[Rfam]
RNA: U1 spliceosomal RNA
RNA sequence: AUACUUACCUGGCCGGGGCGCAUCCGUGAUCAGGAAGGUGGAUGGCCUAGGUUGCAGGGUUCCCAUUGCACUUUGGGUCUCGCCUGGCCUAAGUCACACCCACUGCGGUGUUACUACGGCAGAAUUUCUGGUAGCGGGGGCACGCGUACGCGCGGCCCCCAA
Numbered sequence: 001a002u003a004c005u006u007a008c009c010u011g012g013c014c015g016g017g018g019c020g021c022a023u024c025c026g027u028g029a030u031c032a033g034g035a036a037g038g039u040g041g042a043u044g045g046c047c048u049a050g051g052u053u054g055c056a057g058g059g060u061u062c063c064c065a066u067u068g069c070a071c072u073u074u075g076g077g078u079c080u081c082g083c084c085u086g087g088c089c090u091a092a093g094u095c096a097c098a099c100c101c102a103c104u105g106c107g108g109u110g111u112u113a114c115u116a117c118g119g120c121a122g123a124a125u126u127u128c129u130g131g132u133a134g135c136g137g138g139g140g141c142a143c144g145c146g147u148a149c150g151c152g153c154g155g156c157c158c159c160c161a162a
Stems, first nucleotide, its partner, number of pairs: 012120004016048004023042005049090004058081001062077003092115003096111002099108002136160004143154004